A member of the RNA family "pemK RNA" from Clostridium sp. BNL1100, 80 nucleotides long.

RNA sequence: AUAAUGCUACUUCCGUCCAGCCACAGACAUCGCAAUGGGGACGGCUCGCAGAGAACCUGGGAGAGGUGAAAUUCCUAUGA
Numbered sequence: 001a002u003a004a005u006g007c008u009a010c011u012u013c014c015g016u017c018c019a020g021c022c023a024c025a026g027a028c029a030u031c032g033c034a035a036u037g038g039g040g041a042c043g044g045c046u047c048g049c050a051g052a053g054a055a056c057c058u059g060g061g062a063g064a065g066g067u068g069a070a071a072u073u074c075c076u077a078u079g080a
Stems, first nucleotide, its partner, number of pairs: 012077001013044006045063003049059003064076003
The family's RNA type in Rfam is cis-regulatory element.